[Rfam]
RNA sequence: GGCGGUAUGGUGAAAUUGGUAUACACGCCUGAUUCAAAAUCAGGUGCCUUCGGGCGUGGCGGUUCAAGUCCGCCUACCGCUA
Numbered sequence: 001g002g003c004g005g006u007a008u009g010g011u012g013a014a015a016u017u018g019g020u021a022u023a024c025a026c027g028c029c030u031g032a033u034u035c036a037a038a039a040u041c042a043g044g045u046g047c048c049u050u051c052g053g054g055c056g057u058g059g060c061g062g063u064u065c066a067a068g069u070c071c072g073c074c075u076a077c078c079g080c081u082a
Base pairs, nucleotide, nucleotide: 001081002080003079004078005077006076007075010026011025012024028044029043030042031041032040058074059073060072061071062070
RNA: tRNA
Organism: Vibrio sediminis